[Rfam]
Nucleotides: 037
Base pairs, nucleotide, nucleotide: 006025007024008023010021011020012019
Number, partner (000 for none) and nucleotide at each position: 001000g002000u003000c004000u005000u006025c007024c008023u009000g010021g011020g012019c013000a014000g015000u016000a017000a018000u019012g020011c021010c022000a023008a024007g025006g026000c027000c028000u029000c030000a031000u032000u033000g034000a035000a036000g037000c

Record summary
A member of the RNA family "CRISPR RNA direct repeat element" from Azospirillum thermophilum, 37 nucleotides long. A search with the family's covariance model found it, with a score of 49 bits. The base pairs follow the family's consensus structure, which was predicted with WAR.